[Rfam]
RNA sequence: AAACGUUGGAUGAGUGUGAGGCGUUGGAUUGAUUUUGCUCAAUCUGAGCCCCACAUUCAUCAGGGGUUCGU
Numbered sequence: 001a002a003a004c005g006u007u008g009g010a011u012g013a014g015u016g017u018g019a020g021g022c023g024u025u026g027g028a029u030u031g032a033u034u035u036u037g038c039u040c041a042a043u044c045u046g047a048g049c050c051c052c053a054c055a056u057u058c059a060u061c062a063g064g065g066g067u068u069c070g071u
Stems, first nucleotide, its partner, number of pairs: 004066001006064002009061010020050003024047009